Shown here is an 84-nucleotide sequence from Mesoplasma syrphidae, a member of the family "Bacterial small signal recognition particle RNA". By type it is a non-coding RNA gene. Lineage of the source: Bacteria > Bacillati > Mollicutes > Entomoplasmataceae > Mesoplasma. The match comes from Rfam's covariance-model search (50 bits). The family's consensus secondary structure is taken from published work. About the family: The signal recognition particle (SRP) is a universally conserved ribonucleoprotein involved in the co-translational targeting of proteins to membranes.

RNA sequence: AUGCCGUAAUAAAGAUAACGUCUGAAUUGGUCAGGACCGGAAGGUAGCAGCUAUAAGGAUCUGUGUCUUGUAUUGCGGUUUUUU
Numbered sequence: 001a002u003g004c005c006g007u008a009a010u011a012a013a014g015a016u017a018a019c020g021u022c023u024g025a026a027u028u029g030g031u032c033a034g035g036a037c038c039g040g041a042a043g044g045u046a047g048c049a050g051c052u053a054u055a056a057g058g059a060u061c062u063g064u065g066u067c068u069u070g071u072a073u074u075g076c077g078g079u080u081u082u083u084u
Stems, first nucleotide, its partner, number of pairs: 001083001003081001004078006010070001012069006021058003028053004036045003